[Rfam]
RNA sequence: AGGCAACCCCCUUGCGAUUGAAAAAUAUGGCAAGGGAGUUGUUAUUUUGGUCGAAGAUCAAAUUUACUUUGGCUCUUAAGAUUCGCUGAGAUUGUUUUAACCAUUUUCUGAAGCCUGUCUAGUAAGCUCAAGCACAGU
Numbered sequence: 001a002g003g004c005a006a007c008c009c010c011c012u013u014g015c016g017a018u019u020g021a022a023a024a025a026u027a028u029g030g031c032a033a034g035g036g037a038g039u040u041g042u043u044a045u046u047u048u049g050g051u052c053g054a055a056g057a058u059c060a061a062a063u064u065u066a067c068u069u070u071g072g073c074u075c076u077u078a079a080g081a082u083u084c085g086c087u088g089a090g091a092u093u094g095u096u097u098u099a100a101c102c103a104u105u106u107u108c109u110g111a112a113g114c115c116u117g118u119c120u121a122g123u124a125a126g127c128u129c130a131a132g133c134a135c136a137g138u
Stems, first nucleotide, its partner, number of pairs: 002043004008038001009036007017028001067132003072127003079120004085114003090106002